This 169-nucleotide part of an RNA from Erithacus rubecula belongs to the Rfam family "Eukaryotic small subunit ribosomal RNA".
Rfam 15.1 lists 75,755 matches to the family in 2,556 species.
Rfam links the family to the GO terms structural constituent of ribosome and ribosome.
The base pairs follow the family's consensus structure, which is taken from published work.
The match comes from Rfam's covariance-model search (1411 bits).
Lineage of the source: Eukaryota > Metazoa > Chordata > Archelosauria > Erithacus.

RNA sequence: CCGCCCGUCGCUACUACCCAUUGGACGGCUUAGUGAGGUCCUCGGAUCGGUCCCAGCGGGGUCGGCCACGGCCCUGCCGGAGUGUUGAGAAGACGGUCGAACUUGACUAUCUAGAGGAAGUAAAAGUAAUAACAAGGUUUCCGUAGGUGAACCUGUGGAAGGAUCAUCA
Numbered sequence: 001c002c003g004c005c006c007g008u009c010g011c012u013a014c015u016a017c018c019c020a021u022u023g024g025a026c027g028g029c030u031u032a033g034u035g036a037g038g039u040c041c042u043c044g045g046a047u048c049g050g051u052c053c054c055a056g057c058g059g060g061g062u063c064g065g066c067c068a069c070g071g072c073c074c075u076g077c078c079g080g081a082g083u084g085u086u087g088a089g090a091a092g093a094c095g096g097u098c099g100a101a102c103u104u105g106a107c108u109a110u111c112u113a114g115a116g117g118a119a120g121u122a123a124a125a126g127u128a129a130u131a132a133c134a135a136g137g138u139u140u141c142c143g144u145a146g147g148u149g150a151a152c153c154u155g156u157g158g159a160a161g162g163a164u165c166a167u168c169a
Base pairs, nucleotide, nucleotide: 001136003133009126012122013121014120015119017117018116021113023112024111025110027108028107030105032103033102034101037098038097039096040095042093043092047088048087049086050085051084053080054079056077057076059074060073061072062071138161139160140159141158142157143156144155145154146153147152